[Rfam]
RNA sequence: ACAGCUCGAAAGCCACGGGGCUCACUACGCACAAAAUGUGUCUUUGGACGCAUCUUUCAUCGUGAGCGGGCUAAGGUCUGAGCAUUCUCAUCUCCCUCGAUUGACUCUUGCUGGGUCCAGCCUUAACGGGUUGAGUGACGUACCAGAAAAGCAGUUACCGGUUACUCACGGUCGACUUUGAAACGCGUUGCGGAGAUCGGGUGGGCGUUGUCUGCCCUGCAGGGGUCGGUUUCUCUCUAUCGCGGUGGACGUGUCCCUUCGGGGAUGCACAAUGUGGUUGUCAGUAUGUCCUCACGCUUGCGUGGCUUCUGACAGGGCGGAUCGCUACACUUUGGUACACUACCGAGUGGAAAAGCCGGACGAGAAGACCUCAUCGCGAACGGGCGACAGACGAUUUGCUGCACAUAGCAGAAGCCCAAGUGACCACUACGUCACCUUCUCAUGAUACAUGGAUUGGCAGCGACAAUAGUCGGCCAAAAAAAUCACUGGUAACUGUCGGUCCCGGCCACGUUGUUCAUGCGCUCGAGAAACGCCUCAGCGGUACGAUUGGCACAUUAUCACACGAUGCAGUCGUGCAGCCGUACGAGGAGGGAAACUGAUUUUUUGUGAUGGUAUGGAAUCGCCCAUUCUUGAGUUCACUUCGUGGCUCGCGGGCUCCGUUGCCUGUGAAACUCGAUUCAGACUACUCUCGGACUAU
Numbered sequence: 001a002c003a004g005c006u007c008g009a010a011a012g013c014c015a016c017g018g019g020g021c022u023c024a025c026u027a028c029g030c031a032c033a034a035a036a037u038g039u040g041u042c043u044u045u046g047g048a049c050g051c052a053u054c055u056u057u058c059a060u061c062g063u064g065a066g067c068g069g070g071c072u073a074a075g076g077u078c079u080g081a082g083c084a085u086u087c088u089c090a091u092c093u094c095c096c097u098c099g100a101u102u103g104a105c106u107c108u109u110g111c112u113g114g115g116u117c118c119a120g121c122c123u124u125a126a127c128g129g130g131u132u133g134a135g136u137g138a139c140g141u142a143c144c145a146g147a148a149a150a151g152c153a154g155u156u157a158c159c160g161g162u163u164a165c166u167c168a169c170g171g172u173c174g175a176c177u178u179u180g181a182a183a184c185g186c187g188u189u190g191c192g193g194a195g196a197u198c199g200g201g202u203g204g205g206c207g208u209u210g211u212c213u214g215c216c217c218u219g220c221a222g223g224g225g226u227c228g229g230u231u232u233c234u235c236u237c238u239a240u241c242g243c244g245g246u247g248g249a250c251g252u253g254u255c256c257c258u259u260c261g262g263g264g265a266u267g268c269a270c271a272a273u274g275u276g277g278u279u280g281u282c283a284g285u286a287u288g289u290c291c292u293c294a295c296g297c298u299u300g301c302g303u304g305g306c307u308u309c310u311g312a313c314a315g316g317g318c319g320g321a322u323c324g325c326u327a328c329a330c331u332u333u334g335g336u337a338c339a340c341u342a343c344c345g346a347g348u349g350g351a352a353a354a355g356c357c358g359g360a361c362g363a364g365a366a367g368a369c370c371u372c373a374u375c376g377c378g379a380a381c382g383g384g385c386g387a388c389a390g391a392c393g394a395u396u397u398g399c400u401g402c403a404c405a406u407a408g409c410a411g412a413a414g415c416c417c418a419a420g421u422g423a424c425c426a427c428u429a430c431g432u433c434a435c436c437u438u439c440u441c442a443u444g445a446u447a448c449a450u451g452g453a454u455u456g457g458c459a460g461c462g463a464c465a466a467u468a469g470u471c472g473g474c475c476a477a478a479a480a481a482a483u484c485a486c487u488g489g490u491a492a493c494u495g496u497c498g499g500u501c502c503c504g505g506c507c508a509c510g511u512u513g514u515u516c517a518u519g520c521g522c523u524c525g526a527g528a529a530a531c532g533c534c535u536c537a538g539c540g541g542u543a544c545g546a547u548u549g550g551c552a553c554a555u556u557a558u559c560a561c562a563c564g565a566u567g568c569a570g571u572c573g574u575g576c577a578g579c580c581g582u583a584c585g586a587g588g589a590g591g592g593a594a595a596c597u598g599a600u601u602u603u604u605u606g607u608g609a610u611g612g613u614a615u616g617g618a619a620u621c622g623c624c625c626a627u628u629c630u631u632g633a634g635u636u637c638a639c640u641u642c643g644u645g646g647c648u649c650g651c652g653g654g655c656u657c658c659g660u661u662g663c664c665u666g667u668g669a670a671a672c673u674c675g676a677u678u679c680a681g682a683c684u685a686c687u688c689u690c691g692g693a694c695u696a697u
Stems, first nucleotide, its partner, number of pairs: 001697001003695002007691003012647007020067005036053006078681005092195004103117005118133006135191007154176003648669007